[Rfam]
RNA sequence: CGAGUAAGACAGGCGGUCGCGCGGCAAAGCCGAAAGGCUUGCUGUGAGGAAAGUCCGGGCUCCACAGGGCAAGGAUAACGGGUAACGCCCGCCCAGAGCGAUCUGAGGAAAAGUGCAACAGAAAUAGACUACCCAUAGCAAUAUGGGAAAAGGUGGAAAGGUGCGGUAAGAGCGCACCCGUCGGCUCGAGAGUGUCCGACGCUGUAAACUCUAUCCGGAGCAACACCGGUAUGGGAGCAGGGGCUUCGCGCCCCAAGGUUUGCCCGACCGCUCCCGGGGUGGCUGGAGCUCCGCGGCAACGCGGCGUGUAGAUAGAUGACUGCCAGAUACAGAACCCGGCUUACAGUCUUGCUCGCACG
Number, nucleotide and partner (000 for none) at each position: 001c355002g354003a353004g352005u351006a350007a349008g348009a347010c346011a000012g324013g323014c322015g321016g320017u319018c318019g000020c046021g045022c044023g043024g042025c041026a040027a039028a000029g000030c000031c000032g000033a000034a000035a000036g000037g000038c000039u027040u026041g025042c024043u023044g022045u021046g020047a000048g000049g000050a000051a342052a341053g340054u000055c339056c338057g337058g336059g335060c220061u219062c218063c217064a000065c000066a000067g000068g265069g264070c000071a000072a000073g216074g215075a214076u213077a212078a000079c091080g090081g089082g088083u000084a000085a000086c000087g000088c082089c081090c080091g079092c000093c107094c105095a104096g103097a102098g000099c000100g000101a000102u097103c096104u095105g094106a000107g093108g211109a210110a000111a000112a000113g209114u208115g205116c204117a203118a000119c000120a000121g000122a000123a000124a000125u000126a000127g000128a000129c152130u151131a000132c147133c146134c145135a144136u143137a142138g000139c000140a000141a000142u137143a136144u135145g134146g133147g132148a000149a000150a000151a130152g129153g000154u000155g000156g000157a000158a000159a000160g178161g177162u176163g175164c174165g173166g000167u000168a000169a000170g000171a000172g000173c165174g164175c163176a162177c161178c160179c000180g200181u199182c198183g197184g196185c194186u000187c192188g000189a000190g000191a000192g187193u000194g185195u000196c184197c183198g182199a181200c180201g000202c000203u117204g116205u115206a000207a000208a114209c113210u109211c108212u077213a076214u075215c074216c073217g063218g062219a061220g060221c000222a000223a000224c281225a280226c279227c278228g000229g000230u000231a000232u000233g275234g274235g273236a272237g271238c270239a000240g000241g000242g000243g000244c000245u000246u000247c000248g000249c000250g000251c000252c000253c000254c000255a000256a000257g269258g268259u267260u266261u000262g000263c000264c069265c068266g260267a259268c258269c257270g238271c237272u236273c235274c234275c233276g000277g000278g227279g226280u225281g224282g000283c000284u000285g000286g000287a000288g307289c306290u000291c304292c303293g302294c301295g300296g000297c000298a000299a000300c295301g294302c293303g292304g291305c000306g289307u288308g000309u000310a000311g000312a000313u000314a000315g000316a000317u000318g018319a017320c016321u015322g014323c013324c012325a000326g000327a000328u000329a000330c000331a000332g000333a000334a000335c059336c058337c057338g056339g055340c053341u052342u051343a000344c000345a000346g010347u009348c008349u007350u006351g005352c004353u003354c002355g001356c000357a000358c000359g000
Bacterial RNase P class A: a 359-nucleotide sequence from Firmicutes bacterium CAG:129.
By type it is a ribozyme.
It scores 253 bits against the family's covariance model.
Lineage of the source: Bacteria > Bacillati > Bacillota.